mir-9168 microRNA precursor family: a 95-nucleotide RNA sequence from Equus caballus. Its family is annotated with RISC complex and miRNA-mediated post-transcriptional gene silencing in the Gene Ontology. The family's consensus secondary structure was predicted with RNAalifold. The organism belongs to Equus, within Eukaryota.
[Rfam]
RNA sequence: CCACUCCAACGGCCUCUCCUCUUCUGCAGUGGGUGGGACUGGAGGGCCCUGGAGACCCCCCAGCACACUCGCUGACUGAGGGAUGAUGUGAGUGC
Numbered sequence: 001c002c003a004c005u006c007c008a009a010c011g012g013c014c015u016c017u018c019c020u021c022u023u024c025u026g027c028a029g030u031g032g033g034u035g036g037g038a039c040u041g042g043a044g045g046g047c048c049c050u051g052g053a054g055a056c057c058c059c060c061c062a063g064c065a066c067a068c069u070c071g072c073u074g075a076c077u078g079a080g081g082g083a084u085g086a087u088g089u090g091a092g093u094g095c
Stems, first nucleotide, its partner, number of pairs: 002094005009089002013085001015083002018081004027074009037064001039063004044058003047054001